[Rfam]
RNA sequence: AAGCAUGUGAAGAGGUACUUGGAUUCUUCUUCAGGGCAUUCUUGAUGAUGAUGCAGGUUCCUGAUGCU
Dot-bracket structure: .((((...........................................................))))